[Rfam]
RNA: Small nucleolar RNA SNORD46
RNA sequence: AGCGUGGGUGAUGAAAACACAACCUUAGGUAGGUCUUUUUUGAGCCGUUUUGGUUCAAAGCUUUGGGCUUACCAAUGCUAGGAUCGUCAUAGUUACACUGACACGCU
Numbered sequence: 001a002g003c004g005u006g007g008g009u010g011a012u013g014a015a016a017a018c019a020c021a022a023c024c025u026u027a028g029g030u031a032g033g034u035c036u037u038u039u040u041u042g043a044g045c046c047g048u049u050u051u052g053g054u055u056c057a058a059a060g061c062u063u064u065g066g067g068c069u070u071a072c073c074a075a076u077g078c079u080a081g082g083a084u085c086g087u088c089a090u091a092g093u094u095a096c097a098c099u100g101a102c103a104c105g106c107u
Stems, first nucleotide, its partner, number of pairs: 001107006